[Rfam]
RNA sequence: GGCUCCAUCUUACAAGGCAGUUUUGGAUGUUAUAUCUUCUCUAAUACUGCCUGGUAAUGAUGCAGAU
Numbered sequence: 001g002g003c004u005c006c007a008u009c010u011u012a013c014a015a016g017g018c019a020g021u022u023u024u025g026g027a028u029g030u031u032a033u034a035u036c037u038u039c040u041c042u043a044a045u046a047c048u049g050c051c052u053g054g055u056a057a058u059g060a061u062g063c064a065g066a067u
Stems, first nucleotide, its partner, number of pairs: 003065002006062004010057004015052007023044005
The family of this 67-nucleotide sequence from Danio rerio is "mir-8/mir-141/mir-200 microRNA precursor family". The family has 164 seed sequences and 2,669 matches in Rfam 15.1. Pairs were carried over by alignment from the consensus structure, which was predicted with RNAalifold. Taxonomically the source falls in Danio (Eukaryota, Actinopteri, Neopterygii, Teleostei). Rfam links the family to the GO terms miRNA-mediated post-transcriptional gene silencing and RISC complex.